[Rfam]
Background: The family of this 134-nucleotide sequence from Anisodus acutangulus is "MIR7993 microRNA precursor family". The family has 4 seed sequences and 59 matches in Rfam 15.1. The organism belongs to Anisodus, within Eukaryota. Its family is annotated with RISC complex and miRNA-mediated post-transcriptional gene silencing in the Gene Ontology. The match comes from Rfam's covariance-model search (105 bits).
Nucleotides: 134
Stems, first nucleotide, its partner, number of pairs: 002131012015118011029104002032101010043090005049084001051082002
Number, partner (000 for none) and nucleotide at each position: 001000a002131u003130a004129a005128g006127u007126u008125a009124a010123c011122c012121a013120c014000u015118u016117a017116a018115a019114a020113u021112a022111u023110g024109u025108u026000a027000c028000u029104u030103c031000c032101u033100u034099u035098a036097a037096u038095u039094a040093u041092a042000c043090g044089c045088a046087u047086u048000a049084g050000u051082c052081u053000c054000a055000a056000u057000a058000a059000g060000c061000c062000g063000u064000a065000a066000a067000a068000u069000a070000u071000u072000c073000u074000c075000c076000a077000a078000u079000u080000g081052a082051g083000u084049c085000c086047g087046a088045u089044g090043u091000a092041u093040a094039u095038a096037a097036u098035u099034a100033a101032a102000u103030g104029a105000g106000a107000u108025g109024a110023c111022a112021u113020a114019u115018u116017u117016u118015a119000u120013g121012u122011g123010g124009u125008u126007a127006a128005c129004u130003u131002a132000a133000c134000u